Rfam assigns this 72-nucleotide RNA sequence from Leptobrachium leishanense to the family "mir-10 microRNA precursor family".
RNA sequence: UAAUAUAAACCCGUAGAUCCGAUCUUGUGGUGAAUGGUUCUGCUCAAGCUCGUUUCUAUGGGUCUGUGUGAU
Numbered sequence: 001u002a003a004u005a006u007a008a009a010c011c012c013g014u015a016g017a018u019c020c021g022a023u024c025u026u027g028u029g030g031u032g033a034a035u036g037g038u039u040c041u042g043c044u045c046a047a048g049c050u051c052g053u054u055u056c057u058a059u060g061g062g063u064c065u066g067u068g069u070g071a072u
Stems, first nucleotide, its partner, number of pairs: 003069005010062003015057003020052003024048004029043001

The family has 36 seed sequences and 3,853 matches in Rfam 15.1.